[Rfam]
RNA sequence: CGAGGGGAUGCGCCCAAUCCCCUCGUCGGGGGAACCGGGGAACCACAAAUGCACCUGGGGUGAGUCCGAGCAGCGGCUCGGUAGGGCUGCUCCGGCCCGAACCCGACAGCUAACCCGGUCGGCGCGGUGAGAGGAGAG
Numbered sequence: 001c002g003a004g005g006g007g008a009u010g011c012g013c014c015c016a017a018u019c020c021c022c023u024c025g026u027c028g029g030g031g032g033a034a035c036c037g038g039g040g041a042a043c044c045a046c047a048a049a050u051g052c053a054c055c056u057g058g059g060g061u062g063a064g065u066c067c068g069a070g071c072a073g074c075g076g077c078u079c080g081g082u083a084g085g086g087c088u089g090c091u092c093c094g095g096c097c098c099g100a101a102c103c104c105g106a107c108a109g110c111u112a113a114c115c116c117g118g119u120c121g122g123c124g125c126g127g128u129g130a131g132a133g134g135a136g137a138g
Base pairs, nucleotide, nucleotide: 011124012123013122014121018033019032020031021030022029034119035118036117037116038115039114044057045056058104059103060102066081067080068079069078084098085097086096087095